The record is a 100-nucleotide RNA sequence from Waltiozyma pijperi, which matches "Small nucleolar RNA snR66" in Rfam. Taxonomically the source falls in Waltiozyma (Eukaryota, Fungi, Dikarya, Saccharomycotina). The literature on the family includes a 1999 paper in Science by Lowe and Eddy, "A computational screen for methylation guide snoRNAs in yeast". It is annotated as a C/D-box small nucleolar RNA.

RNA sequence: AUAGGAUUCUAGAUGAUGAGAUAAUCAUGCAACAUAGAGUCAAGCUCAGAGUACAAAAGUUACAGGGACGAGAAUUGCUUCAAUUUCUGAUUUAUCUUAC
Numbered sequence: 001a002u003a004g005g006a007u008u009c010u011a012g013a014u015g016a017u018g019a020g021a022u023a024a025u026c027a028u029g030c031a032a033c034a035u036a037g038a039g040u041c042a043a044g045c046u047c048a049g050a051g052u053a054c055a056a057a058a059g060u061u062a063c064a065g066g067g068a069c070g071a072g073a074a075u076u077g078c079u080u081c082a083a084u085u086u087c088u089g090a091u092u093u094a095u096c097u098u099a100c
Base pairs, nucleotide, nucleotide: 002099003098004097005096006095